[Rfam]
RNA sequence: CUAAAUAAACAGCUUCGAGGUGUUCCGGCUAAGGGCAACUAUGCCGGUUUAUCCUGAGAGUUCUCUCACAGGGCAGCGGGGGAAACGCCGCUGCCUCCCAUGACGCAGGAGAAUCAUCCUGCCAGGAAAGAAGCCUGAAAAGCAGAUGG
Numbered sequence: 001c002u003a004a005a006u007a008a009a010c011a012g013c014u015u016c017g018a019g020g021u022g023u024u025c026c027g028g029c030u031a032a033g034g035g036c037a038a039c040u041a042u043g044c045c046g047g048u049u050u051a052u053c054c055u056g057a058g059a060g061u062u063c064u065c066u067c068a069c070a071g072g073g074c075a076g077c078g079g080g081g082g083a084a085a086c087g088c089c090g091c092u093g094c095c096u097c098c099c100a101u102g103a104c105g106c107a108g109g110a111g112a113a114u115c116a117u118c119c120u121g122c123c124a125g126g127a128a129a130g131a132a133g134c135c136u137g138a139a140a141a142g143c144a145g146a147u148g149g
Base pairs, nucleotide, nucleotide: 006140012134013133014132015131016130019053020052021051022050025047026046027045028044029043033040034039055068056067057066058065059064071096072095073094074093075092076091077090078089079088081086097126098125